RNA: mir-221 microRNA precursor family
RNA sequence: UGUUUCCCUGACCUGGUACUCAGUGUAGGGUCUGUGUGUUUUUAACUACAGCUACAUCUGAUUACUGGGUCAGAGAUUGCAUCA
Numbered sequence: 001u002g003u004u005u006c007c008c009u010g011a012c013c014u015g016g017u018a019c020u021c022a023g024u025g026u027a028g029g030g031u032c033u034g035u036g037u038g039u040u041u042u043u044a045a046c047u048a049c050a051g052c053u054a055c056a057u058c059u060g061a062u063u064a065c066u067g068g069g070u071c072a073g074a075g076a077u078u079g080c081a082u083c084a
Stems, first nucleotide, its partner, number of pairs: 013068006020061003023057006032051004